[Rfam]
RNA sequence: GGCUUGUCUGAUGGUACUGGGUUAUCAAAACUUAUUAACAUUAGUGUCACUAAAGUUGUUAUACAACUCUCCACUGCUAAAUUUGACUGGCUUGAA
Numbered sequence: 001g002g003c004u005u006g007u008c009u010g011a012u013g014g015u016a017c018u019g020g021g022u023u024a025u026c027a028a029a030a031c032u033u034a035u036u037a038a039c040a041u042u043a044g045u046g047u048c049a050c051u052a053a054a055g056u057u058g059u060u061a062u063a064c065a066a067c068u069c070u071c072c073a074c075u076g077c078u079a080a081a082u083u084u085g086a087c088u089g090g091c092u093u094g095a096a
Base pairs, nucleotide, nucleotide: 001092002091003090004089006087007086008085010084011083015079016075018073019072020071021070027060028059030057
Dot-bracket structure: ((((.(((.((...((.((((.....((.(..........................).)).........)))).)...)...))))).))))....
Shown here is a 96-nucleotide RNA sequence from Prolemur simus, a member of the family "Y RNA". The family's consensus secondary structure is taken from published work. Rfam 15.1 lists 26,986 matches to the family in 650 species. A search with the family's covariance model found it, with a score of 49 bits.